[Rfam]
RNA sequence: UCGAGGUGACGAUAAAAAUUUCACAGUCUGUCAAUCCACUGACAACAUUGGGUGAUGUUAUUGUGAUAUCUCGACAGGUUCUGAUCGA
Numbered sequence: 001u002c003g004a005g006g007u008g009a010c011g012a013u014a015a016a017a018a019u020u021u022c023a024c025a026g027u028c029u030g031u032c033a034a035u036c037c038a039c040u041g042a043c044a045a046c047a048u049u050g051g052g053u054g055a056u057g058u059u060a061u062u063g064u065g066a067u068a069u070c071u072c073g074a075c076a077g078g079u080u081c082u083g084a085u086c087g088a
Base pairs, nucleotide, nucleotide: 001088002087003086004085
Shown here is an 88-nucleotide RNA sequence from Eutrema salsugineum, a member of the family "Small nucleolar RNA snoR14". Rfam 15.1 lists 668 matches to the family in 221 species. The organism belongs to Eutrema, within Eukaryota.